[Rfam]
Shown here is an 83-nucleotide sequence from Cuneatibacter caecimuris, a member of the family "ZMP/ZTP riboswitch aptamer (pfl RNA motif)". A search with the family's covariance model found it, with a score of 64 bits. Rfam links the family to the GO terms regulation of purine nucleotide biosynthetic process and one-carbon metabolic process.
RNA sequence: UACAGAGCGUGCAACUGGCGGAAACAGUGGGAGACCACAGGGGAGCACGCGGAUUAUCUGAGCCGUCCGCCUGGGCACCUGAA
Numbered sequence: 001u002a003c004a005g006a007g008c009g010u011g012c013a014a015c016u017g018g019c020g021g022a023a024a025c026a027g028u029g030g031g032a033g034a035c036c037a038c039a040g041g042g043g044a045g046c047a048c049g050c051g052g053a054u055u056a057u058c059u060g061a062g063c064c065g066u067c068c069g070c071c072u073g074g075g076c077a078c079c080u081g082a083a
Stems, first nucleotide, its partner, number of pairs: 007050006015042002017071005027038004060078001062076003